[Rfam]
RNA sequence: AACGUGCUCCGGGGUCGGUGAAAGUCCGAACCGGCGGUGAUAGUCCGCGAGCGGUGCAUGCGCCUUGACGGGUGCGUGUUCUGCUGAACCGGUGGAAUUCCGGUACCGACGGUAAUGGGUAGAAGCGCCAGUGGCGCAUCCGCCCUCAGUCCGGAUGGGAGGCAGCACGCG
Numbered sequence: 001a002a003c004g005u006g007c008u009c010c011g012g013g014g015u016c017g018g019u020g021a022a023a024g025u026c027c028g029a030a031c032c033g034g035c036g037g038u039g040a041u042a043g044u045c046c047g048c049g050a051g052c053g054g055u056g057c058a059u060g061c062g063c064c065u066u067g068a069c070g071g072g073u074g075c076g077u078g079u080u081c082u083g084c085u086g087a088a089c090c091g092g093u094g095g096a097a098u099u100c101c102g103g104u105a106c107c108g109a110c111g112g113u114a115a116u117g118g119g120u121a122g123a124a125g126c127g128c129c130a131g132u133g134g135c136g137c138a139u140c141c142g143c144c145c146u147c148a149g150u151c152c153g154g155a156u157g158g159g160a161g162g163c164a165g166c167a168c169g170c171g
Base pairs, nucleotide, nucleotide: 003169004168005167006166007165008164009162010161016028017027018026032108033107034048035047036046037045043106044105051084052083053082088104089103090102091101092100110153111152112151

Shown here is a 171-nucleotide RNA sequence from Leifsonia sp. Root112D2, a member of the family "FMN riboswitch aptamer (RFN element)". The organism belongs to Leifsonia, within Bacteria. The match comes from Rfam's covariance-model search (80 bits). The base pairs follow the family's consensus structure, which is taken from published work.